[Rfam]
Notes
This 247-nucleotide RNA sequence from Plantactinospora sp. KBS50 belongs to the Rfam family "Actinobacteria sRNA Ms_IGR-5". A search with the family's covariance model found it, with a score of 96 bits. Pairs were carried over by alignment from the consensus structure.

RNA sequence: ACACGGGAAAGGAGGUGGUCCAGGCUUUGUGUAGUUAUUGGACUCGUGAGGUGGCUGUCCGCUAGCCGCUGUCCUUGACAGUCAUGGAUCCCCUUCGACGGUUCUGCCGCCGGUGAGGGUCUUUGUCCGAUCGUCGAGACCGUGUGGCAGCGGUACGGCGAAUCCACGUCAGCCACCCGACCCCCGGGGUGCCGGCCCAGUCCAGCCGGCCCGCCGUACGCGGCGGAAGCCCCGGGGGUCGCUCAUU
Number, nucleotide and partner (000 for none) at each position: 001a000002c000003a000004c000005g000006g000007g000008a000009a000010a000011g000012g000013a000014g059015g058016u057017g056018g055019u054020c000021c000022a000023g000024g000025c000026u000027u000028u000029g000030u000031g000032u000033a000034g000035u000036u000037a000038u000039u000040g000041g000042a000043c000044u000045c000046g000047u000048g000049a000050g000051g000052u000053g000054g019055c018056u017057g016058u015059c014060c160061g159062c158063u155064a154065g000066c152067c000068g151069c150070u149071g148072u000073c146074c000075u000076u000077g000078a000079c000080a000081g000082u000083c000084a000085u000086g000087g000088a000089u000090c000091c000092c000093c000094u000095u000096c000097g000098a000099c000100g000101g000102u000103u000104c000105u000106g000107c000108c000109g000110c000111c000112g000113g000114u000115g000116a000117g000118g000119g000120u000121c000122u000123u000124u000125g000126u000127c000128c000129g000130a000131u000132c000133g000134u000135c000136g000137a000138g000139a000140c000141c000142g000143u000144g000145u000146g073147g000148c071149a070150g069151c068152g066153g000154u064155a063156c000157g000158g062159c061160g060161a000162a000163u000164c000165c000166a000167c000168g000169u000170c000171a000172g000173c000174c000175a000176c000177c000178c241179g240180a239181c238182c237183c236184c235185c234186g233187g232188g231189g230190u229191g210192c209193c208194g207195g206196c205197c000198c000199a000200g000201u000202c000203c000204a000205g196206c195207c194208g193209g192210c191211c000212c000213g000214c000215c000216g000217u000218a000219c000220g000221c000222g000223g000224c000225g000226g000227a000228a000229g190230c189231c188232c187233c186234g185235g184236g183237g182238g181239u180240c179241g178242c000243u000244c000245a000246u000247u000